A member of the RNA family "L17-Actino-Proteobacteria ribosomal protein leader" from Actinomadura viridis, 65 nucleotides long. Pairs were carried over by alignment from the consensus structure, which is taken from published work. The organism belongs to Actinomadura, within Bacteria.
[Rfam]
RNA sequence: GCGCACGCCACCGGGCGUGCGUGAUUCAUCGCAGCUGACGCCGGUACCUGAUACGGCCGGCGCAG
Numbered sequence: 001g002c003g004c005a006c007g008c009c010a011c012c013g014g015g016c017g018u019g020c021g022u023g024a025u026u027c028a029u030c031g032c033a034g035c036u037g038a039c040g041c042c043g044g045u046a047c048c049u050g051a052u053a054c055g056g057c058c059g060g061c062g063c064a065g
Stems, first nucleotide, its partner, number of pairs: 001022008035065003039062007